About this RNA:
Shown here is a 179-nucleotide RNA, a member of the family "malK-I RNA". It is annotated as a cis-regulatory element.
[Rfam]
RNA sequence: CUGACUGCGUGCAUGGCUCUCCAUCACUAAGUUAUGCACAGCAUUAAUAAGGAGGAAUAUGAACUUCCCUGUGGCUCGGGGUACGGCAUUGUUGGAGACAUGCCGCAAGGCGGCGCGCGUAUGCGGCCGCGAGGUCACGACCGGCGGAGGCCGCGUGAUCGGAGCCGGAAUGUAUGGCA
Numbered sequence: 001c002u003g004a005c006u007g008c009g010u011g012c013a014u015g016g017c018u019c020u021c022c023a024u025c026a027c028u029a030a031g032u033u034a035u036g037c038a039c040a041g042c043a044u045u046a047a048u049a050a051g052g053a054g055g056a057a058u059a060u061g062a063a064c065u066u067c068c069c070u071g072u073g074g075c076u077c078g079g080g081g082u083a084c085g086g087c088a089u090u091g092u093u094g095g096a097g098a099c100a101u102g103c104c105g106c107a108a109g110g111c112g113g114c115g116c117g118c119g120u121a122u123g124c125g126g127c128c129g130c131g132a133g134g135u136c137a138c139g140a141c142c143g144g145c146g147g148a149g150g151c152c153g154c155g156u157g158a159u160c161g162g163a164g165c166c167g168g169a170a171u172g173u174a175u176g177g178c179a
Base pairs, nucleotide, nucleotide: 009039010038011037012036013035014034015033016032017031018030067081068080069079070078072167073166074165075164076163077162082107084105085104086103087102088101089100091099092098110130111129112128113127114126116125117124118123133160134159135158136157137156138155139154143152144151145150